[Rfam]
RNA: Molybdenum/Tungsten riboswitch aptamer (Moco RNA motif)
RNA sequence: UUAAGAAUAUAACUCCGAGCUAAAAGGCCUUCGGUUUCUGCAUGGAUCAUGGUCUGCAGCCGUUAGGGUUGUACUGGAAACGGUUCAGCCUUCCACCACUUGAAAAGGAGUCUGUAUGAAUGUCUCA
Numbered sequence: 001u002u003a004a005g006a007a008u009a010u011a012a013c014u015c016c017g018a019g020c021u022a023a024a025a026g027g028c029c030u031u032c033g034g035u036u037u038c039u040g041c042a043u044g045g046a047u048c049a050u051g052g053u054c055u056g057c058a059g060c061c062g063u064u065a066g067g068g069u070u071g072u073a074c075u076g077g078a079a080a081c082g083g084u085u086c087a088g089c090c091u092u093c094c095a096c097c098a099c100u101u102g103a104a105a106a107g108g109a110g111u112c113u114g115u116a117u118g119a120a121u122g123u124c125u126c127a
Base pairs, nucleotide, nucleotide: 003121011113012111013110014109015108016107019060020059021058025055026054027053028052029051033048034047035046036045066091067090068089069088070087071086073084074083075082076081092103093102